[Rfam]
RNA: Actinobacteria sRNA Ms_IGR-5
RNA sequence: ACACUGAAGGGAGGUGGUCCGCGACAUGAAGUCUUUCCGGACGCGUGAGGUGGCUGCCCGCUAGCCGCCCGAGACACUCGGACGGACUGUCGAUCCGCUCGACUGCUCCGCCGGCGACGGCCGGCAGGGUGGCAGGCGAAUACCCGGCAGUCACCGCAGCCCGUGGGAGCCGCGACCUCGUCGUUCGCGGCAGGGUCUCCACCCGGAGUCCCGGCCCACGGGCUGUCCCCU
Numbered sequence: 001a002c003a004c005u006g007a008a009g010g011g012a013g014g015u016g017g018u019c020c021g022c023g024a025c026a027u028g029a030a031g032u033c034u035u036u037c038c039g040g041a042c043g044c045g046u047g048a049g050g051u052g053g054c055u056g057c058c059c060g061c062u063a064g065c066c067g068c069c070c071g072a073g074a075c076a077c078u079c080g081g082a083c084g085g086a087c088u089g090u091c092g093a094u095c096c097g098c099u100c101g102a103c104u105g106c107u108c109c110g111c112c113g114g115c116g117a118c119g120g121c122c123g124g125c126a127g128g129g130u131g132g133c134a135g136g137c138g139a140a141u142a143c144c145c146g147g148c149a150g151u152c153a154c155c156g157c158a159g160c161c162c163g164u165g166g167g168a169g170c171c172g173c174g175a176c177c178u179c180g181u182c183g184u185u186c187g188c189g190g191c192a193g194g195g196u197c198u199c200c201a202c203c204c205g206g207a208g209u210c211c212c213g214g215c216c217c218a219c220g221g222g223c224u225g226u227c228c229c230c231u
Stems, first nucleotide, its partner, number of pairs: 013058006059138004064133002067130004157225011171189005